A member of the RNA family "Neisseria metabolic switch regulator b (RcoF1/NgncR163)" from Snodgrassella alvi, 89 nucleotides long. NCBI's taxonomy places the organism under Bacteria, Pseudomonadati, Neisseriales, Snodgrassella, Snodgrassella alvi. Rfam describes the family as follows. Sibling sRNA described and independently named in three publications. NgncR163 is N. gonorrhoeae while the others are N. meningitidis RNAs. RcoF1 stands for: RNA regulating colonization factor 1. It is one of the family's seed sequences. On this family, see Bauer et al., Microbiology 2017: "The sibling sRNAs NgncR_162 and NgncR_163 of Neisseria gonorrhoeae participate in the expression control of metabolic, transport and regulatory proteins". Pairs were carried over by alignment from the consensus structure, which was predicted with RNAfold.
[Rfam]
RNA sequence: UCGUUAAAUCAGCUCCUAGUUGGUUUAACAGUUUCUCCUCUAUUUCUCCUUUGUAGACUUGGCGCACACUUAAUCGUGUGCGCAUUUUU
Numbered sequence: 001u002c003g004u005u006a007a008a009u010c011a012g013c014u015c016c017u018a019g020u021u022g023g024u025u026u027a028a029c030a031g032u033u034u035c036u037c038c039u040c041u042a043u044u045u046c047u048c049c050u051u052u053g054u055a056g057a058c059u060u061g062g063c064g065c066a067c068a069c070u071u072a073a074u075c076g077u078g079u080g081c082g083c084a085u086u087u088u089u
Base pairs, nucleotide, nucleotide: 003029004028005027006026007025008024009023010022011021039057040056041055042054043053062083063082064081065080066079067078068077069076
Dot-bracket structure: ..(((((((((.........))))))))).........(((((.........)))))....((((((((......))))))))......